[Rfam]
RNA sequence: GAGGUGGGCCAGACGACCGCGGGACGUGUGCGUCACGAGGAAAGUCCGGGCUCCUGAGGGCAGGAAGCUGGCUAACGGCCAGGCGGGGUGACCCGACGGAAAGCGCCGCAGAAAAGAAGACUCCCGCUGUCCCCUUGGGGAUGAGAGAAAAGCUGAAACGGUGGUGCAAGAGACCACCAGCGCCUGGGCGACCAGGCGGCUUGGCAAGCCCCUUCCGGAGCAAGCGCAAAUAGGAGCGCCAUGGUGUGGCCCGCACCGCGCUCGGGUUGCGCGCUCGAGGCCUGCGGCAACGCAAGGCCCUAGAUAGAUGGUCGUCCACGACAGAACCCGGCUUACCGGCCCGCCUCGCAG
Numbered sequence: 001g002a003g004g005u006g007g008g009c010c011a012g013a014c015g016a017c018c019g020c021g022g023g024a025c026g027u028g029u030g031c032g033u034c035a036c037g038a039g040g041a042a043a044g045u046c047c048g049g050g051c052u053c054c055u056g057a058g059g060g061c062a063g064g065a066a067g068c069u070g071g072c073u074a075a076c077g078g079c080c081a082g083g084c085g086g087g088g089u090g091a092c093c094c095g096a097c098g099g100a101a102a103g104c105g106c107c108g109c110a111g112a113a114a115a116g117a118a119g120a121c122u123c124c125c126g127c128u129g130u131c132c133c134c135u136u137g138g139g140g141a142u143g144a145g146a147g148a149a150a151a152g153c154u155g156a157a158a159c160g161g162u163g164g165u166g167c168a169a170g171a172g173a174c175c176a177c178c179a180g181c182g183c184c185u186g187g188g189c190g191a192c193c194a195g196g197c198g199g200c201u202u203g204g205c206a207a208g209c210c211c212c213u214u215c216c217g218g219a220g221c222a223a224g225c226g227c228a229a230a231u232a233g234g235a236g237c238g239c240c241a242u243g244g245u246g247u248g249g250c251c252c253g254c255a256c257c258g259c260g261c262u263c264g265g266g267u268u269g270c271g272c273g274c275u276c277g278a279g280g281c282c283u284g285c286g287g288c289a290a291c292g293c294a295a296g297g298c299c300c301u302a303g304a305u306a307g308a309u310g311g312u313c314g315u316c317c318a319c320g321a322c323a324g325a326a327c328c329c330g331g332c333u334u335a336c337c338g339g340c341c342c343g344c345c346u347c348g349c350a351g
Stems, first nucleotide, its partner, number of pairs: 001347010012316007020037002023034004042334003046331005051220004058252004063216005068082005083097001084095004098211002103209002105205003121152002124147001128143006160178006180200001181198007224272004234263006243257005279299005284293003

Background:
Rfam assigns this 351-nucleotide sequence from Olsenella profusa to the family "Bacterial RNase P class A". By type it is a ribozyme. The family's consensus secondary structure is taken from published work. Rfam describes the family as follows. Ribonuclease P (RNase P) is a ubiquitous endoribonuclease, found in archaea, bacteria and eukarya as well as chloroplasts and mitochondria. The source organism's lineage runs through Bacteria, Bacillati, Atopobiaceae, Olsenella and Olsenella profusa.